mir-92 microRNA precursor family: a 76-nucleotide RNA from Sinocyclocheilus anshuiensis. Taxonomically the source falls in Sinocyclocheilus (Eukaryota, Bilateria, Deuterostomia, Ostariophysi). Gene Ontology terms of the family: RISC complex and miRNA-mediated post-transcriptional gene silencing. For this family Rfam cites "miRNPs: a novel class of ribonucleoproteins containing numerous microRNAs" (Mourelatos et al., Genes Dev, 2002). Its Rfam clan is "mir-92 microRNA precursor clan". This family represents the microRNA precursor mir-92.

Nucleotides: 076
Base pairs, nucleotide, nucleotide: 005071006070009067010066011065012064013063014062016060017059018058019057020056022054023053026051027050028049029048030047031046032045033044
Number, partner (000 for none) and nucleotide at each position: 001000c002000u003000u004000u005071c006070u007000u008000u009067g010066c011065a012064g013063g014062u015000u016060g017059g018058g019057a020056u021000c022054g023053g024000c025000c026051g027050c028049a029048a030047u031046g032045c033044u034000c035000u036000g037000c038000g039000c040000u041000g042000g043000a044033a045032g046031u047030a048029u049028u050027g051026c052000a053023c054022u055000u056020g057019u058018c059017c060016c061000g062014g063013c064012c065011u066010g067009u068000g069000a070006a071005g072000u073000g074000c075000a076000u